[Rfam]
Nucleotides: 357
Stems, first nucleotide, its partner, number of pairs: 040057007061194005071187002073182004085171002089168003095111005112153007195210004201220002204218003323338004329354006
Number, partner (000 for none) and nucleotide at each position: 001000c002000c003000c004000c005000u006000u007000g008000c009000a010000g011000c012000g013000c014000a015000g016000g017000c018000g019000c020000c021000c022000c023000c024000g025000u026000c027000c028000u029000a030000u031000a032000u033000c034000g035000g036000u037000c038000c039000u040057g041056u042055c043054c044053g045052g046051a047000g048000c049000a050000a051046u052045u053044c054043g055042g056041a057040c058000u059000a060000u061194g062193g063192a064191c065190a066000u067000a068000a069000a070000c071187g072186c073182g074181c075180u076179c077000g078000u079000a080000a081000u082000a083000a084000g085171c086170g087000g088000a089168u090167c091166g092000g093000a094000c095111c096110c097109g098108g099107g100000g101000g102000c103000g104000g105000u106000a107099c108098c109097c110096g111095g112153c113152g114151g115150c116149u117148c118147c119000a120000c121000c122000a123000a124000g125000a126000c127000a128000c129000c130000c131000u132000u133000c134000a135000u136000u137000g138000g139000g140000g141000g142000c143000g144000a145000a146000u147118g148117g149116g150115g151114c152113c153112g154000a155000a156000a157000c158000a159000g160000g161000a162000u163000c164000g165000a166091c167090g168089a169000a170086c171085g172000u173000c174000u175000a176000a177000a178000g179076g180075g181074g182073u183000u184000a185000u186072g187071c188000u189000u190065u191064g192063u193062c194061u195210c196209g197208g198207u199000g200000a201220g202219c203000u204218a205217c206216u207198a208197c209196c210195g211000u212000u213000a214000u215000c216206g217205g218204u219202g220201c221000a222000a223000a224000a225000c226000g227000u228000a229000c230000a231000g232000u233000u234000g235000c236000c237000a238000a239000u240000g241000a242000c243000a244000a245000c246000c247000g248000u249000g250000c251000u252000c253000c254000g255000g256000u257000c258000g259000c260000u261000c262000u263000g264000g265000c266000u267000g268000c269000g270000u271000a272000a273000g274000c275000a276000g277000u278000c279000c280000g281000a282000a283000a284000g285000a286000u287000c288000g289000a290000a291000a292000c293000c294000u295000a296000a297000g298000c299000c300000c301000u302000u303000g304000c305000g306000c307000c308000u309000a310000g311000c312000a313000g314000c315000g316000u317000a318000a319000g320000g321000c322000g323338g324337g325336g326335c327000c328000c329354g330353c331352a332351g333350g334349a335326g336325c337324c338323u339000g340000g341000c342000a343000a344000c345000a346000g347000a348000a349334u350333c351332c352331u353330g354329c355000a356000c357000c

The record is a 357-nucleotide sequence from Paracoccus sp. SM22M-07, which matches "Alphaproteobacteria transfer-messenger RNA" in Rfam. It is annotated as a non-coding RNA gene. Its Rfam clan is "tRNA clan".